The record is a 68-nucleotide sequence from Musa balbisiana, which matches "Plastid-clpP 5UTR RNA" in Rfam. A search with the family's covariance model found it, with a score of 68 bits.
[Rfam]
RNA sequence: AAUUCUGUUCGUAAGAACAAAGAGAAGCAUAUCUAUUCUAUACCCGAGAGUCCGCAAUAGCAAUGGGA
Numbered sequence: 001a002a003u004u005c006u007g008u009u010c011g012u013a014a015g016a017a018c019a020a021a022g023a024g025a026a027g028c029a030u031a032u033c034u035a036u037u038c039u040a041u042a043c044c045c046g047a048g049a050g051u052c053c054g055c056a057a058u059a060g061c062a063a064u065g066g067g068a
Base pairs, nucleotide, nucleotide: 003022004021006019007018008017009016010015043067044066045065051059
Dot-bracket structure: ..((.(((((....))))).))....................(((.....(.......).....))).
Source information
Rfam describes the family as follows. Plastid clpP is a non-coding RNA (ncRNA) recognised in plastids. It was found in the prime untranslated region (5UTR) of a protease complex subunit (clpP) in plastids, suggesting a posible cis-regulatory function. It is annotated as a cis-regulatory element.